[Rfam]
RNA sequence: UUACGUCUGUCUCAGAAAAGAAAGCAUUUUCUGCUUGCAGAAAAAUGGUUUCUUUUCUAGAGACACAAAACCAAUGAGCAUGUAGUGCGAUAGCACGGAAUGCGAAUUGUGUUUGCAAAUUGCGGGAGCGUAAGCGGAGCAAUUUGUGAGGACGUAA
Numbered sequence: 001u002u003a004c005g006u007c008u009g010u011c012u013c014a015g016a017a018a019a020g021a022a023a024g025c026a027u028u029u030u031c032u033g034c035u036u037g038c039a040g041a042a043a044a045a046u047g048g049u050u051u052c053u054u055u056u057c058u059a060g061a062g063a064c065a066c067a068a069a070a071c072c073a074a075u076g077a078g079c080a081u082g083u084a085g086u087g088c089g090a091u092a093g094c095a096c097g098g099a100a101u102g103c104g105a106a107u108u109g110u111g112u113u114u115g116c117a118a119a120u121u122g123c124g125g126g127a128g129c130g131u132a133a134g135c136g137g138a139g140c141a142a143u144u145u146g147u148g149a150g151g152a153c154g155u156a157a
Stems, first nucleotide, its partner, number of pairs: 001157007010063004014058010025047004029042005068114004072109004078103004085096004117145007128135002
RNA: Clostridiales-1 RNA